[Rfam]
RNA sequence: GCGAACAUCGUUACCAGACAGUGUUAGAUCACAGAUGUACAGUCCAGCACUGUCAGGUAAGAUGUACGC
Numbered sequence: 001g002c003g004a005a006c007a008u009c010g011u012u013a014c015c016a017g018a019c020a021g022u023g024u025u026a027g028a029u030c031a032c033a034g035a036u037g038u039a040c041a042g043u044c045c046a047g048c049a050c051u052g053u054c055a056g057g058u059a060a061g062a063u064g065u066a067c068g069c
Stems, first nucleotide, its partner, number of pairs: 002068002005065005011060005017054009027044002
Dot-bracket structure: .((.(((((.(((((.(((((((((.((..............)).))))))))).)))))))))).)).
The family of this 69-nucleotide RNA sequence from Albula goreensis is "mir-8/mir-141/mir-200 microRNA precursor family". Its family is annotated with RISC complex and miRNA-mediated post-transcriptional gene silencing in the Gene Ontology. Rfam 15.1 lists 2,669 matches to the family in 883 species. Taxonomically the source falls in Albula (Eukaryota, Deuterostomia, Neopterygii, Albulinae).